Shown here is an 85-nucleotide RNA sequence from Bacillus benzoevorans, a member of the family "c-di-GMP-I riboswitch aptamer". Taxonomically the source falls in Bacillus (Bacteria, Bacillati, Bacillota, Caryophanales).
RNA sequence: UAUCGAUAAAGGCAAACCUAUUUAAAGGUAGGGACGCAAAGCCACGGGUCUAAGGCAUUUUUGCUAAGGCAGCCGGGUUACCGAA
Numbered sequence: 001u002a003u004c005g006a007u008a009a010a011g012g013c014a015a016a017c018c019u020a021u022u023u024a025a026a027g028g029u030a031g032g033g034a035c036g037c038a039a040a041g042c043c044a045c046g047g048g049u050c051u052a053a054g055g056c057a058u059u060u061u062u063g064c065u066a067a068g069g070c071a072g073c074c075g076g077g078u079u080a081c082c083g084a085a
Stems, first nucleotide, its partner, number of pairs: 012037002017032006040079004045075003048070003055064003
Dot-bracket structure: ...........((...((((((....))))))...))..((((.((((((....(((....)))...)))..)))))))......